The family of this 158-nucleotide sequence from Spirodela intermedia is "Small nucleolar RNA F1/F2/snoR5a". By type it is an H/ACA-box small nucleolar RNA. Rfam's curators write: This family contains F1, F2 and snoR5a sequences, all of which are members of the the H/ACA class of snoRNA that guide the sites of modification of uridines to pseudouridines. The source organism's lineage runs through Eukaryota, Streptophyta, Liliopsida, Araceae and Spirodela.

RNA sequence: CAUUGCCAUUUGGUAUCUGAUACCACGACUUAAAUCUCCGAUAGUGUGGUAUCUCGUAUAAAUGGCGUAGAUUAAACCAGGUUUAGAACAGGCCUUGCGACACUGGUUGCUUCAUUAUAACUCAUAAGCUUCCUGUUACUAAUUUCCUGUUUACAAUC
Numbered sequence: 001c002a003u004u005g006c007c008a009u010u011u012g013g014u015a016u017c018u019g020a021u022a023c024c025a026c027g028a029c030u031u032a033a034a035u036c037u038c039c040g041a042u043a044g045u046g047u048g049g050u051a052u053c054u055c056g057u058a059u060a061a062a063u064g065g066c067g068u069a070g071a072u073u074a075a076a077c078c079a080g081g082u083u084u085a086g087a088a089c090a091g092g093c094c095u096u097g098c099g100a101c102a103c104u105g106g107u108u109g110c111u112u113c114a115u116u117a118u119a120a121c122u123c124a125u126a127a128g129c130u131u132c133c134u135g136u137u138a139c140u141a142a143u144u145u146c147c148u149g150u151u152u153a154c155a156a157u158c
Stems, first nucleotide, its partner, number of pairs: 004067006019053008028045003032042001087151005102136002105133002109129003